A member of the RNA family "mir-149 microRNA precursor family" from Pan troglodytes, 81 nucleotides long. Rfam links the family to the GO terms miRNA-mediated post-transcriptional gene silencing and RISC complex. The family's consensus secondary structure was predicted with RNAalifold. NCBI's taxonomy places the organism under Eukaryota, Gnathostomata, Boreoeutheria, Catarrhini, Pan.
[Rfam]
RNA sequence: CCGGCGCCCGAGCUCUGGCUCCGUGUCUUCACUCCCGUGCUUGUCCGAGGAGGGAGGGAGGGACGGGGGCUGUGCUGGGGC
Numbered sequence: 001c002c003g004g005c006g007c008c009c010g011a012g013c014u015c016u017g018g019c020u021c022c023g024u025g026u027c028u029u030c031a032c033u034c035c036c037g038u039g040c041u042u043g044u045c046c047g048a049g050g051a052g053g054g055a056g057g058g059a060g061g062g063a064c065g066g067g068g069g070c071u072g073u074g075c076u077g078g079g080g081c
Stems, first nucleotide, its partner, number of pairs: 006081004011076003015072001017070001019068006026061005032056005
Dot-bracket structure: .....((((.(((.(.(.((((((.(((((.(((((...............)))))))))).)))))).).).))).))))